The family of this 57-nucleotide RNA from Vitis vinifera is "Plastid-rps18 3UTR RNA". NCBI's taxonomy places the organism under Eukaryota, Euphyllophyta, Gunneridae, Vitaceae, Vitis. The literature on the family includes a 2023 paper in Plant Commun by Richter et al., "Retrograde signaling in plants: A critical review focusing on the GUN pathway and beyond". The family's consensus secondary structure was predicted with LocARNA. Plastid rps18 is a non-coding RNA (ncRNA) present in plastids. It was identified as a short stem-loop motif in the 3 prime untranslate region (3UTR) of rps18 gene. The family's RNA type in Rfam is cis-regulatory element.
RNA sequence: UGCAAGUAUUUUACGAUUAAGAAGUAACUACUUCUUGUACAAAUCAUGUAUUCUACU
Numbered sequence: 001u002g003c004a005a006g007u008a009u010u011u012u013a014c015g016a017u018u019a020a021g022a023a024g025u026a027a028c029u030a031c032u033u034c035u036u037g038u039a040c041a042a043a044u045c046a047u048g049u050a051u052u053c054u055a056c057u
Stems, first nucleotide, its partner, number of pairs: 018037008